[Rfam]
RNA sequence: GAAUGCCACUGUUAAUAUGCGCGGUGGACACUCCUUUUAUUUGGCAUAUUCGUGGAGUUACCCAUGUCACUGACAGUUGAACAAAAAGCGGAAAUCGUUAAGGAAUUCGGUACUGGCGCC
Numbered sequence: 001g002a003a004u005g006c007c008a009c010u011g012u013u014a015a016u017a018u019g020c021g022c023g024g025u026g027g028a029c030a031c032u033c034c035u036u037u038u039a040u041u042u043g044g045c046a047u048a049u050u051c052g053u054g055g056a057g058u059u060a061c062c063c064a065u066g067u068c069a070c071u072g073a074c075a076g077u078u079g080a081a082c083a084a085a086a087a088g089c090g091g092a093a094a095u096c097g098u099u100a101a102g103g104a105a106u107u108c109g110g111u112a113c114u115g116g117c118g119c120c
Stems, first nucleotide, its partner, number of pairs: 007026006050073002054071002057068001
A member of the RNA family "Ribosomal S15 leader" from Saccharospirillum sp. MSK14-1, 120 nucleotides long. The family is grouped with related families in Rfam's "Ribosomal Protein S15 Leader clan". Rfam describes the family as follows. The E. coli Ribosomal S15 gene 5' UTR can form two alternative structures. One that is a series of three hairpins, The other includes a pseudoknot. For this family Rfam cites "Pseudoknot and translational control in the expression of the S15 ribosomal protein" (Benard et al., Biochimie, 1996). Taxonomically the source falls in Saccharospirillum (Bacteria, Gammaproteobacteria, Oceanospirillales, Saccharospirillaceae). The family's RNA type in Rfam is cis-regulatory leader. Rfam links the family to the GO term regulation of translation, ncRNA-mediated.